[Rfam]
RNA: mir-4872 microRNA precursor family
Organism: Branchiostoma floridae
RNA sequence: UCACAUGUACUGCCGGGGUAACCAAAGCUCUGACUUCUGAGUUUUGUUACCCCGGCUCUCUGUGGG
Numbered sequence: 001u002c003a004c005a006u007g008u009a010c011u012g013c014c015g016g017g018g019u020a021a022c023c024a025a026a027g028c029u030c031u032g033a034c035u036u037c038u039g040a041g042u043u044u045u046g047u048u049a050c051c052c053c054g055g056c057u058c059u060c061u062g063u064g065g066g
Base pairs, nucleotide, nucleotide: 001066002065004064005063006062007061009059012056013055014054015053016052017051019049020048021047022046024045025044026043027042028041029040030039032037